[Rfam]
RNA sequence: GCUCCCCUUACAGCAAUUCUUACAUUCUACUGAUUAAAGAAAACCCUUGGGAACUG
Numbered sequence: 001g002c003u004c005c006c007c008u009u010a011c012a013g014c015a016a017u018u019c020u021u022a023c024a025u026u027c028u029a030c031u032g033a034u035u036a037a038a039g040a041a042a043a044c045c046c047u048u049g050g051g052a053a054c055u056g
Stems, first nucleotide, its partner, number of pairs: 001054001003052004
A member of the RNA family "Class I RNA from Dictyostelium" from Polysphondylium violaceum, 56 nucleotides long.
Dictyostelium Class I RNA was first reported for Aspegren et al. 2004 in Dictyostelium discoideum. Sucgang et al. 2011 identify putative homologs of Class I RNA in D. discoideum and D. purpureum. Avesson et al. 2011 report that Class I RNA present a down regulation during the development of social amoeba Dictyostelium discoideum, they also found that deletion of one of the Class I RNAs, DdR-21, results in aberrant development. Kjellin et al. 2020 report an extended number of expressed Class I RNA genes in class Dictyostelia, in their analysis they remark that Class I RNA appear to be unique to dictyostelid social amoebas, and they hypothesise that Class I RNAs were involved in evolution of multicellularity in Dictyostelia.
The base pairs follow the family's consensus structure, which is taken from published work.
Taxonomically the source falls in Polysphondylium (Eukaryota, Amoebozoa, Eumycetozoa, Dictyostelia).